[Rfam]
RNA: SAM riboswitch aptamer (S box leader)
Organism: Lysinibacillus odysseyi
RNA sequence: CUCUUAUCAAGAGCGGCGGAGGGACUAGGCCCUGUGAUGCCCGGCAACCAGUAAUGACUUACAAAGGUGCUAAUUCCUACAGAUUCGAAUCGGGAUCUGAAAGAUAAGGG
Numbered sequence: 001c002u003c004u005u006a007u008c009a010a011g012a013g014c015g016g017c018g019g020a021g022g023g024a025c026u027a028g029g030c031c032c033u034g035u036g037a038u039g040c041c042c043g044g045c046a047a048c049c050a051g052u053a054a055u056g057a058c059u060u061a062c063a064a065a066g067g068u069g070c071u072a073a074u075u076c077c078u079a080c081a082g083a084u085u086c087g088a089a090u091c092g093g094g095a096u097c098u099g100a101a102a103g104a105u106a107a108g109g110g
Stems, first nucleotide, its partner, number of pairs: 001110008013042001015041003021032003026079004043071004048067002051062003075102001080099006